Annotation
SAM riboswitch aptamer (S box leader): a 113-nucleotide sequence from Zeaxanthinibacter enoshimensis. A search with the family's covariance model found it, with a score of 80 bits. The SAM riboswitch is found upstream of a number of genes which code for proteins involved in methionine or cysteine biosynthesis in Gram-positive bacteria.

RNA sequence: CUGUUAUCAAGAAAGGUGGAGGGAAUAGACCCUGUGAAACCUUAGCAACCCUCUGCUCCUCAUUGCAGAGAAGGUGCUACAUUCUAUCCCGUACAGACGGGAAUAGAUAACGC
Numbered sequence: 001c002u003g004u005u006a007u008c009a010a011g012a013a014a015g016g017u018g019g020a021g022g023g024a025a026u027a028g029a030c031c032c033u034g035u036g037a038a039a040c041c042u043u044a045g046c047a048a049c050c051c052u053c054u055g056c057u058c059c060u061c062a063u064u065g066c067a068g069a070g071a072a073g074g075u076g077c078u079a080c081a082u083u084c085u086a087u088c089c090c091g092u093a094c095a096g097a098c099g100g101g102a103a104u105a106g107a108u109a110a111c112g113c
Stems, first nucleotide, its partner, number of pairs: 002112007013043005021032003026086004044078004049074002051070006082105001087102006